[Rfam]
The family of this 689-nucleotide RNA from Saccharomyces kudriavzevii is "RNA of unknown function 21". It is one of the family's seed sequences. The literature on the family includes a 2009 paper in PLoS Genet by Kavanaugh and Dietrich, "Non-coding RNA prediction and verification in Saccharomyces cerevisiae". Taxonomically the source falls in Saccharomyces kudriavzevii (Eukaryota, Ascomycota, Saccharomycetes, Saccharomycetales).

RNA sequence: UUCCUCCAAAUGAAAAAAAAAAAAUAAAAAAAAUAAACGGAAGAGUGAAAAAGUUCGGGGUUAGCAAAGACUGAAGUGGAUCCAUACAUAAACUAGAUUUUUUGGCCACCCAACCCCGGAUCGCUGGACACGAAAUAGUUUGUGAGCACUCCGGGUAGCACAUAUAUCACUCUUCACGAUAUUAAUCGGAUCUUGGCGGCUAAAUGAUGAAGAUCCCACCACUCAUCGUUUGUUAAAUGGGAAUAGUAGAGGCAGCGCAUCUUGUUUAUAAUACUAUAUGGAACAUGGAAAAAGUGAAUCUUAUCUGGGGGGUGGAGCGACCGGAAGAAGACAUACGUUUUUGUGCCUAGUUCAUGAUGCAUUGUUGAAGGAAGGGCCGGACUUUUUGAAUGUAAGCAUCAAACCCUCACCCUGACAAAAAAUGUGGCUUUCUUUCUCUUGAAGAGGUCCUGUCUUUUUCCCUUUUUUGGCUUGUAGUUUUGCUGUAUGAUGUUGCGGUUCAGUUUCCUUACUUAUUUGCCGUCCGUAUUUAUAUAUAAAUUCUGCUCUCCGGGCGGUCCUUUUAGCCGCCGAAGUGAGCAUUGAAAAUCAAGAGCUUGAAAGGGUAAAGGUAGUUAAGAUAGUAUAUAUAUAUAAAUUGAAUUAUAUAUUUCAAUAAGGAAUGGUAUGAAAUUUUUCGUGGAUUAGUU
Number, nucleotide and partner (000 for none) at each position: 001u000002u000003c000004c000005u000006c000007c000008a000009a000010a000011u000012g000013a000014a000015a000016a000017a000018a000019a000020a000021a000022a000023a000024a000025u000026a000027a000028a000029a000030a000031a000032a000033a000034u000035a000036a000037a000038c000039g000040g000041a000042a000043g000044a000045g680046u679047g678048a677049a676050a675051a674052a673053g000054u000055u000056c000057g117058g116059g115060g114061u113062u073063a072064g071065c000066a000067a000068a000069g000070a000071c064072u063073g062074a000075a000076g089077u088078g087079g000080a000081u000082c000083c000084a000085u000086a000087c078088a077089u076090a000091a000092a000093c000094u000095a000096g000097a000098u000099u000100u000101u000102u000103u000104g000105g000106c000107c000108a000109c000110c000111c000112a000113a061114c060115c059116c058117c057118g000119g000120a000121u000122c000123g000124c000125u000126g000127g000128a000129c000130a000131c000132g000133a000134a000135a000136u000137a000138g000139u000140u000141u000142g000143u000144g000145a000146g000147c000148a000149c000150u000151c000152c000153g000154g000155g000156u000157a000158g000159c000160a000161c000162a000163u669164a668165u667166a666167u665168c664169a663170c000171u000172c000173u000174u000175c000176a000177c000178g000179a000180u000181a000182u000183u000184a000185a000186u000187c000188g000189g000190a000191u000192c000193u000194u572195g571196g570197c569198g568199g567200c566201u565202a564203a563204a562205u000206g000207a000208u000209g000210a000211a000212g000213a000214u000215c000216c000217c000218a000219c000220c000221a000222c000223u000224c000225a000226u000227c000228g000229u000230u000231u000232g000233u000234u000235a000236a000237a000238u000239g000240g000241g000242a000243a000244u000245a000246g000247u000248a000249g000250a000251g266252g265253c264254a263255g262256c000257g000258c000259a000260u000261c000262u255263u254264g253265u252266u251267u000268a000269u000270a000271a000272u000273a000274c000275u000276a000277u000278a000279u000280g000281g000282a000283a000284c000285a000286u000287g000288g000289a000290a000291a000292a000293a000294g000295u000296g000297a000298a000299u000300c000301u000302u000303a000304u000305c000306u000307g000308g551309g550310g549311g548312g000313u000314g000315g000316a000317g000318c000319g000320a000321c000322c000323g000324g000325a000326a000327g000328a000329a000330g000331a000332c000333a000334u000335a362336c000337g360338u359339u000340u357341u356342u000343g000344u000345g000346c000347c000348u000349a000350g000351u000352u000353c000354a000355u000356g341357a340358u000359g338360c337361a000362u335363u000364g000365u000366u000367g000368a468369a467370g466371g465372a464373a463374g462375g461376g460377c000378c000379g000380g000381a000382c000383u000384u000385u000386u000387u000388g000389a000390a000391u000392g000393u000394a000395a000396g000397c000398a000399u000400c000401a000402a000403a000404c000405c000406c000407u000408c000409a000410c000411c000412c000413u000414g000415a000416c000417a000418a000419a000420a000421a000422a000423u000424g000425u000426g000427g000428c000429u000430u000431u000432c000433u000434u000435u000436c000437u000438c000439u000440u000441g000442a000443a000444g000445a000446g000447g000448u000449c000450c000451u000452g000453u000454c000455u000456u000457u000458u000459u000460c376461c375462c374463u373464u372465u371466u370467u369468u368469g000470g000471c000472u000473u000474g000475u000476a000477g000478u000479u000480u000481u000482g000483c000484u000485g000486u000487a000488u000489g000490a000491u000492g000493u000494u000495g000496c000497g000498g000499u000500u000501c000502a000503g000504u000505u000506u000507c000508c000509u000510u000511a000512c000513u000514u000515a000516u000517u000518u000519g000520c000521c000522g000523u000524c000525c000526g000527u000528a000529u000530u000531u000532a000533u000534a000535u000536a000537u000538a000539a000540a000541u000542u000543c000544u000545g000546c000547u000548c311549u310550c309551c308552g000553g000554g000555c000556g000557g000558u000559c000560c000561u000562u204563u203564u202565a201566g200567c199568c198569g197570c196571c195572g194573a000574a000575g000576u000577g000578a000579g000580c000581a000582u000583u000584g000585a000586a000587a000588a000589u000590c000591a000592a000593g000594a000595g000596c000597u000598u000599g000600a000601a000602a000603g000604g000605g000606u000607a000608a000609a000610g000611g646612u645613a644614g643615u642616u641617a000618a000619g000620a000621u000622a000623g634624u633625a632626u631627a000628u000629a000630u000631a626632u625633a624634u623635a000636a000637a000638u000639u000640g000641a616642a615643u614644u613645a612646u611647a000648u000649a000650u000651u000652u000653c000654a000655a000656u000657a000658a000659g000660g000661a000662a000663u169664g168665g167666u166667a165668u164669g163670a000671a000672a000673u052674u051675u050676u049677u048678c047679g046680u045681g000682g000683a000684u000685u000686a000687g000688u000689u000